[Rfam]
RNA: tRNA
Organism: Drosophila melanogaster
RNA sequence: GAUUAAGUGGCUGAAGUUUAGGCGAUAGAUUGUAAAUCUAUAUAUAAGAUUUAUUCUUCUUAAUCA
Numbered sequence: 001g002a003u004u005a006a007g008u009g010g011c012u013g014a015a016g017u018u019u020a021g022g023c024g025a026u027a028g029a030u031u032g033u034a035a036a037u038c039u040a041u042a043u044a045u046a047a048g049a050u051u052u053a054u055u056c057u058u059c060u061u062a063a064u065c066a
Stems, first nucleotide, its partner, number of pairs: 001065007010023003025041005046058004